The family of this 92-nucleotide RNA from Theobroma cacao is "Small nucleolar RNA snoR8a". The family's consensus secondary structure was predicted with WAR. Rfam links the family to the GO terms nucleolus and RNA processing. The source organism's lineage runs through Eukaryota, Streptophyta, Pentapetalae, Malvales and Theobroma.

RNA sequence: AAGUUAACGAUAAUUAUAAAAAUAAGUAUUCGUUAUGACUUGCUUAAUUUAGGCAUGAUAAACUCCUAUUACAGUCAUAGAAUUUAAGUUAC
Numbered sequence: 001a002a003g004u005u006a007a008c009g010a011u012a013a014u015u016a017u018a019a020a021a022a023u024a025a026g027u028a029u030u031c032g033u034u035a036u037g038a039c040u041u042g043c044u045u046a047a048u049u050u051a052g053g054c055a056u057g058a059u060a061a062a063c064u065c066c067u068a069u070u071a072c073a074g075u076c077a078u079a080g081a082a083u084u085u086a087a088g089u090u091a092c
Stems, first nucleotide, its partner, number of pairs: 003092002006090002